[Rfam]
RNA sequence: CUUGUAAGUUUGAGGCCAUAGCAGAAGUGCUCACAGCACAGCCCUGUCAGAUUCCAAUGAAUCUGCAAAUUCUAAU
Numbered sequence: 001c002u003u004g005u006a007a008g009u010u011u012g013a014g015g016c017c018a019u020a021g022c023a024g025a026a027g028u029g030c031u032c033a034c035a036g037c038a039c040a041g042c043c044c045u046g047u048c049a050g051a052u053u054c055c056a057a058u059g060a061a062u063c064u065g066c067a068a069a070u071u072c073u074a075a076u
Stems, first nucleotide, its partner, number of pairs: 012044001014043003020076001023073004027039003048065007
Dot-bracket structure: ...........[.[[[...(..(((((((.......))).]]]]...(((((((....)))))))....))))..)
RNA: Mammalian CPEB3 ribozyme
Organism: Alligator sinensis